[Rfam]
RNA: mir-181 microRNA precursor family
RNA sequence: AGGUCACAAUCAACAUUCAUUGCUGUCGGUGGGUUGCACUGUAAAGGAAAGCUCACUGAACAAUGAAUGCAACUGUGUCCCA
Numbered sequence: 001a002g003g004u005c006a007c008a009a010u011c012a013a014c015a016u017u018c019a020u021u022g023c024u025g026u027c028g029g030u031g032g033g034u035u036g037c038a039c040u041g042u043a044a045a046g047g048a049a050a051g052c053u054c055a056c057u058g059a060a061c062a063a064u065g066a067a068u069g070c071a072a073c074u075g076u077g078u079c080c081c082a
Stems, first nucleotide, its partner, number of pairs: 002081002005077004014069009026059006033052003